[Rfam]
RNA sequence: UUGCAAAUAUUCUCGUUCUGAUUUUGUAAUAAUCAGGACAGGCUAAACAUUUGCUAUAUUAAGACCAUUCAUGUGUUCCCCAGACCUACUUCUUUACCUAUGUCUGGUCUUACAAAUGCUGGUGACAAAA
Numbered sequence: 001u002u003g004c005a006a007a008u009a010u011u012c013u014c015g016u017u018c019u020g021a022u023u024u025u026g027u028a029a030u031a032a033u034c035a036g037g038a039c040a041g042g043c044u045a046a047a048c049a050u051u052u053g054c055u056a057u058a059u060u061a062a063g064a065c066c067a068u069u070c071a072u073g074u075g076u077u078c079c080c081c082a083g084a085c086c087u088a089c090u091u092c093u094u095u096a097c098c099u100a101u102g103u104c105u106g107g108u109c110u111u112a113c114a115a116a117u118g119c120u121g122g123u124g125a126c127a128a129a130a
Stems, first nucleotide, its partner, number of pairs: 003054003016038008064123004070118001080107006087100002
Dot-bracket structure: ..(((..........((((((((.......)))))))).............))).........((((..(.........((((((.((..........)).))))))..........).)))).......
Small nucleolar RNA SNORA72: a 130-nucleotide RNA sequence from Oryctolagus cuniculus. Rfam links the family to the GO terms RNA processing and nucleolus. Rfam classes the family as an H/ACA-box small nucleolar RNA. The base pairs follow the family's consensus structure, which was predicted with PFOLD. A search with the family's covariance model found it, with a score of 121 bits. Rfam 15.1 lists 1,541 matches to the family in 547 species.